A member of the RNA family "TPP riboswitch aptamer (THI element)" from Streptococcus australis, 125 nucleotides long.

[Rfam]
RNA sequence: AAGAGUCACAAGAGGAGCAAUUGCUGAGAUUGGCUAGCUUAGAUACCAGAGGUGUUCGUUGCUGGCCUAAACUCUUACCACCUGAUCAGGUUAGGACCUGCGUAGGGAUGUGUCUCAAAACAGAA
Numbered sequence: 001a002a003g004a005g006u007c008a009c010a011a012g013a014g015g016a017g018c019a020a021u022u023g024c025u026g027a028g029a030u031u032g033g034c035u036a037g038c039u040u041a042g043a044u045a046c047c048a049g050a051g052g053u054g055u056u057c058g059u060u061g062c063u064g065g066c067c068u069a070a071a072c073u074c075u076u077a078c079c080a081c082c083u084g085a086u087c088a089g090g091u092u093a094g095g096a097c098c099u100g101c102g103u104a105g106g107g108a109u110g111u112g113u114c115u116c117a118a119a120a121c122a123g124a125a
Base pairs, nucleotide, nucleotide: 007112008111009110010109011075012074013073014072017024018023032067033066034065035064036063037062038061081106082105083104084103087100088099089098090097

Vitamin B(1) in its active form thiamin pyrophosphate (TPP) is an essential coenzyme that is synthesised by coupling of pyrimidine and thiazole moieties in bacteria. NCBI's taxonomy places the organism under Bacteria, Bacillota, Bacilli, Streptococcaceae, Streptococcus australis.